The record is a 62-nucleotide sequence from Carlito syrichta, which matches "Gag/pol translational readthrough site" in Rfam. The family's RNA type in Rfam is cis-regulatory element. Rfam 15.1 lists 3,368 matches to the family in 94 species.

[Rfam]
RNA sequence: UAGGGGAGUCGGGGUUUGGAACCCCUCCCCAAACCCAGGGUAAAGCUGAAGGUGGAGGGGAA
Numbered sequence: 001u002a003g004g005g006g007a008g009u010c011g012g013g014g015u016u017u018g019g020a021a022c023c024c025c026u027c028c029c030c031a032a033a034c035c036c037a038g039g040g041u042a043a044a045g046c047u048g049a050a051g052g053u054g055g056a057g058g059g060g061a062a
Base pairs, nucleotide, nucleotide: 008041009040010039012036013035014034015033016031018029019028022060023059024058025057026056027055